[Rfam]
RNA sequence: AUUUCAUCAAGAGCAAUUGAGGGAUACGGCCCGAUGACAUUGCGGCAACCCCCGUUAGGGAAGGUGCCAAGUCCGACGGCUUAUGCCGGCAGAUGAACG
Numbered sequence: 001a002u003u004u005c006a007u008c009a010a011g012a013g014c015a016a017u018u019g020a021g022g023g024a025u026a027c028g029g030c031c032c033g034a035u036g037a038c039a040u041u042g043c044g045g046c047a048a049c050c051c052c053c054g055u056u057a058g059g060g061a062a063g064g065u066g067c068c069a070a071g072u073c074c075g076a077c078g079g080c081u082u083a084u085g086c087c088g089g090c091a092g093a094u095g096a097a098c099g
Stems, first nucleotide, its partner, number of pairs: 003097006013043005021032003027075003044068004049064002051060003072091001077088004

The record is a 99-nucleotide sequence from Megasphaera micronuciformis, which matches "SAM riboswitch aptamer (S box leader)" in Rfam. The base pairs follow the family's consensus structure, which is taken from published work. It scores 77 bits against the family's covariance model. Taxonomically the source falls in Megasphaera micronuciformis (Bacteria, Negativicutes, Veillonellales, Veillonellaceae).